About this RNA: This 77-nucleotide RNA sequence from Danionella cerebrum belongs to the Rfam family "Small nucleolar RNA SNORD111". A reference for the family is Galardi et al. (2002), "Purified box C/D snoRNPs are able to reproduce site-specific 2'-O-methylation of target RNA in vitro", Mol Cell Biol. It is annotated as a C/D-box small nucleolar RNA. A search with the family's covariance model found it, with a score of 54 bits. Taxonomically the source falls in Danionella (Eukaryota, Gnathostomata, Actinopterygii, Actinopteri).

RNA sequence: UGUGUUGAAAUGAUGAAUAUCUACAUGUCUCUUCUCUGACUGAUUAAUGAAGAGAUUAUAGUGAUAUCUGAUGCUCA
Numbered sequence: 001u002g003u004g005u006u007g008a009a010a011u012g013a014u015g016a017a018u019a020u021c022u023a024c025a026u027g028u029c030u031c032u033u034c035u036c037u038g039a040c041u042g043a044u045u046a047a048u049g050a051a052g053a054g055a056u057u058a059u060a061g062u063g064a065u066a067u068c069u070g071a072u073g074c075u076c077a
Stems, first nucleotide, its partner, number of pairs: 001077002004074002